Shown here is a 132-nucleotide RNA from Cavia porcellus, a member of the family "U11 spliceosomal RNA". The base pairs follow the family's consensus structure, which is taken from published work. Lineage of the source: Eukaryota > Vertebrata > Boreoeutheria > Rodentia > Cavia.
[Rfam]
RNA sequence: AAAAAUGACUUGUCAUGAGUGGCACACAUAGAGCAACUUGCUUGUUCUGUGUGAGGGAUUGAUAUCCAAAGAUAUCAGAAGCAUAAUUUUUUUAGUCUUGGGCAAAUGGUGAUCACUGGUUUUGGUGCAAAA
Numbered sequence: 001a002a003a004a005a006u007g008a009c010u011u012g013u014c015a016u017g018a019g020u021g022g023c024a025c026a027c028a029u030a031g032a033g034c035a036a037c038u039u040g041c042u043u044g045u046u047c048u049g050u051g052u053g054a055g056g057g058a059u060u061g062a063u064a065u066c067c068a069a070a071g072a073u074a075u076c077a078g079a080a081g082c083a084u085a086a087u088u089u090u091u092u093u094a095g096u097c098u099u100g101g102g103c104a105a106a107u108g109g110u111g112a113u114c115a116c117u118g119g120u121u122u123u124g125g126u127g128c129a130a131a132a
Stems, first nucleotide, its partner, number of pairs: 009081002011024005025053012055076002058073003102128002105126001107124003111121004